[Rfam]
RNA sequence: ACGAGGUGUCCUUUGACUGCGGUGCUGGAAGCGUAGAGAACUCCCAUCAUCCCAGUACGGAGGGCACCUCCUCUCAUUUCACGGCACUCGCGUCAGUUUUGGCUCGGUGGAUCCAG
Numbered sequence: 001a002c003g004a005g006g007u008g009u010c011c012u013u014u015g016a017c018u019g020c021g022g023u024g025c026u027g028g029a030a031g032c033g034u035a036g037a038g039a040a041c042u043c044c045c046a047u048c049a050u051c052c053c054a055g056u057a058c059g060g061a062g063g064g065c066a067c068c069u070c071c072u073c074u075c076a077u078u079u080c081a082c083g084g085c086a087c088u089c090g091c092g093u094c095a096g097u098u099u100u101g102g103c104u105c106g107g108u109g110g111a112u113c114c115a116g
Stems, first nucleotide, its partner, number of pairs: 003070011015058001017055003021051001023049002026046001028044001030042002096113001098111004
The family of this 116-nucleotide sequence from Acrocarpospora pleiomorpha is "Actinobacteria sRNA Ms_IGR-7". It scores 45 bits against the family's covariance model. For this family Rfam cites "Identification of small RNAs in Mycobacterium smegmatis using heterologous Hfq" (Li et al., RNA, 2013). The pairing is the family consensus, mapped onto this sequence.